This 55-nucleotide sequence from Dulcicalothrix desertica belongs to the Rfam family "Nitrogen stress-induced RNA 1".
The organism belongs to Dulcicalothrix desertica, within Bacteria.
On this family, see Ionescu et al., J Mol Biol 2010: "Heterocyst-specific transcription of NsiR1, a non-coding RNA encoded in a tandem array of direct repeats in cyanobacteria".
It is annotated as a small RNA.
[Rfam]
RNA sequence: UGGUAGAUGCACCCUGGUUAAGCCCUAGAGAAAAAAAACUCUGGGGCAUUUUUUA
Numbered sequence: 001u002g003g004u005a006g007a008u009g010c011a012c013c014c015u016g017g018u019u020a021a022g023c024c025c026u027a028g029a030g031a032a033a034a035a036a037a038a039c040u041c042u043g044g045g046g047c048a049u050u051u052u053u054u055a
Stems, first nucleotide, its partner, number of pairs: 002013003022047009